Shown here is a 187-nucleotide sequence from Agrilus planipennis, a member of the family "R2 RNA element".
The organism belongs to Agrilus, within Eukaryota.
RNA sequence: CGGUCACCGCAGAUACGGAUGGAUACCUAAUGAAUACGGACCAGCUGAAGAGGACCUUAAUUGGUCCUAAAACGGCCUGAGGUAGAGGGGUUUUAGUCGGUAGGUCCGAGGACUUCUUCCUCGGGAAUCCGACACUACCCAGUCGUACGGACGGCUGGGUGUCUUUUGAAGAUUUCCCCUCUUCCAC
Number, nucleotide and partner (000 for none) at each position: 001c000002g000003g000004u000005c000006a000007c000008c000009g000010c000011a000012g000013a000014u000015a000016c000017g000018g000019a000020u000021g000022g000023a000024u000025a000026c000027c000028u000029a000030a000031u000032g000033a000034a000035u000036a000037c000038g056039g055040a000041c053042c000043a000044g000045c000046u000047g000048a000049a000050g000051a000052g000053g041054a000055c039056c038057u000058u000059a000060a000061u000062u000063g000064g187065u186066c000067c000068u000069a000070a000071a000072a000073c000074g000075g000076c000077c000078u000079g000080a000081g185082g184083u000084a182085g181086a000087g178088g177089g176090g000091u000092u000093u000094u000095a000096g133097u132098c131099g130100g129101u000102a000103g000104g000105u125106c124107c123108g122109a121110g120111g119112a118113c000114u000115u000116c000117u000118u112119c111120c110121u109122c108123g107124g106125g105126a000127a000128u000129c100130c099131g098132a097133c096134a000135c161136u000137a160138c159139c158140c157141a156142g000143u000144c000145g000146u000147a000148c000149g000150g000151a000152c000153g000154g000155c000156u141157g140158g139159g138160u137161g135162u000163c000164u000165u000166u000167u000168g000169a000170a000171g000172a000173u000174u000175u000176c089177c088178c087179c000180u000181c085182u084183u000184c082185c081186a065187c064
From the family's description: This family represents the 3' UTR region of the R2 retrotransposable element. This family is known to interact with the R2-encoded reverse transcriptase in a reaction known as target primed reverse transcription (TPRT). Pairs were carried over by alignment from the consensus structure, which is taken from published work. For this family Rfam cites "Secondary structure models of the 3' untranslated regions of diverse R2 RNAs" (Ruschak et al., RNA, 2004).